[Rfam]
RNA: tRNA
RNA sequence: GGGGAUAUAGCUCAGGGGUAGAGCAUUUGACUGCAGAUCAUAGAGGUCCCUGGUUCCAAUCCAGGUGCCCCCU
Numbered sequence: 001g002g003g004g005a006u007a008u009a010g011c012u013c014a015g016g017g018g019u020a021g022a023g024c025a026u027u028u029g030a031c032u033g034c035a036g037a038u039c040a041u042a043g044a045g046g047u048c049c050c051u052g053g054u055u056c057c058a059a060u061c062c063a064g065g066u067g068c069c070c071c072c073u
Stems, first nucleotide, its partner, number of pairs: 001072004006067002010024004026042001028040003049065005